[Rfam]
RNA: Bacterial RNase P class A
Organism: Ramlibacter aurantiacus
RNA sequence: GAAGCACGCCAGACCGCCGCUGGUGCAAGCUGAAAAGCCGACGCUUGCGUCGGGCCGAAAGGCCGCACCGGAGGAACGUCCGGACUGCACAGGGCAGCGUAGCAGGUAACACCUGUCCACCGUGAGGUGAGGAUCAGAGCAACAGAGACGAGUCGGUGGCAUGCCGCAAGGUGGCCGCCGGGUGAAACGGGCAAUCUCUACGCGCAGCAAUACCAAGUAGGCCAGCGUUGACCUGUGUCCCGGGGAGCUGGCGGGUAGGUAGCACCGAGCCGCUUCGGCGACGAGCGGCCCAGAGGAAUGGCGGUCACGUCACGGGCAACCGUGGCGCACAGAAUCCGGCGUAUCGGCGGGCUUCACAA
Numbered sequence: 001g002a003a004g005c006a007c008g009c010c011a012g013a014c015c016g017c018c019g020c021u022g023g024u025g026c027a028a029g030c031u032g033a034a035a036a037g038c039c040g041a042c043g044c045u046u047g048c049g050u051c052g053g054g055c056c057g058a059a060a061g062g063c064c065g066c067a068c069c070g071g072a073g074g075a076a077c078g079u080c081c082g083g084a085c086u087g088c089a090c091a092g093g094g095c096a097g098c099g100u101a102g103c104a105g106g107u108a109a110c111a112c113c114u115g116u117c118c119a120c121c122g123u124g125a126g127g128u129g130a131g132g133a134u135c136a137g138a139g140c141a142a143c144a145g146a147g148a149c150g151a152g153u154c155g156g157u158g159g160c161a162u163g164c165c166g167c168a169a170g171g172u173g174g175c176c177g178c179c180g181g182g183u184g185a186a187a188c189g190g191g192c193a194a195u196c197u198c199u200a201c202g203c204g205c206a207g208c209a210a211u212a213c214c215a216a217g218u219a220g221g222c223c224a225g226c227g228u229u230g231a232c233c234u235g236u237g238u239c240c241c242g243g244g245g246a247g248c249u250g251g252c253g254g255g256u257a258g259g260u261a262g263c264a265c266c267g268a269g270c271c272g273c274u275u276c277g278g279c280g281a282c283g284a285g286c287g288g289c290c291c292a293g294a295g296g297a298a299u300g301g302c303g304g305u306c307a308c309g310u311c312a313c314g315g316g317c318a319a320c321c322g323u324g325g326c327g328c329a330c331a332g333a334a335u336c337c338g339g340c341g342u343a344u345c346g347g348c349g350g351g352c353u354u355c356a357c358a359a
Stems, first nucleotide, its partner, number of pairs: 001355005007349004011344001012306007020071007076342003080339005085207004092240004097203005102116005117131001118129004132198002137196002139192002154171001156167004211261004221252006232244004269289005275284003